[Rfam]
RNA: speF leader
Nucleotides: 150
Stems, first nucleotide, its partner, number of pairs: 001021007032047004054129003079091002099112004
Number, partner (000 for none) and nucleotide at each position: 001021u002020u003019u004018c005017a006016g007015c008000u009000a010000u011000a012000g013000a014000u015007g016006c017005u018004g019003a020002g021001a022000u023000a024000a025000c026000u027000a028000a029000a030000g031000a032047g033046g034045c035044a036000c037000a038000c039000c040000u041000c042000a043000u044035u045034g046033c047032c048000u049000u050000c051000a052000g053000u054129g055128c056127g057000g058000a059000a060000g061000u062000g063000u064000u065000u066000u067000g068000u069000g070000c071000a072000a073000c074000u075000c076000c077000a078000a079091u080090c081000a082000a083000a084000a085000a086000g087000g088000c089000a090080g091079a092000c093000a094000a095000a096000g097000u098000a099112g100111a101110g102109u103000a104000a105000c106000g107000c108000g109102a110101u111100u112099u113000u114000c115000g116000c117000g118000c119000u120000a121000u122000u123000c124000c125000u126000u127056c128055g129054u130000g131000g132000c133000a134000u135000a136000c137000a138000a139000u140000a141000c142000c143000g144000u145000u146000a147000u148000u149000c150000c